[Rfam]
RNA sequence: ACGACGAAUACUUAGUCAAGAUCAUUGCUAUAGUAUUUGUGAUGUUUUAUUGUUAUACUUUAACAGAUUGUCGAGAAGUGAUGAUGAUUGGGCACUGCUCGGAUUAUGAAAUUAAUUUUCGAUAUUUUUUACAAUUUCCUUUUUGAGAUUGUUUAAAGUGUCCGAAAAGCGAUGAAUUAUUUCUUUUUCCUCAAUUAAAAGGAUUCUCUAAUCUUUUUUUUUUGUUGAAGAGAAAACGAGCAUGUGUCGACUGAACUUUU
Dot-bracket structure: .((.(.(.((((.....(..(....)..)..)))))..)))....(...(((((.......)))))).......(((((...........(((((((((((..(.((........(((..((((((((..........................))))))))...))).......)).)((((.(..........................................).))))...)))))).)))))......))))).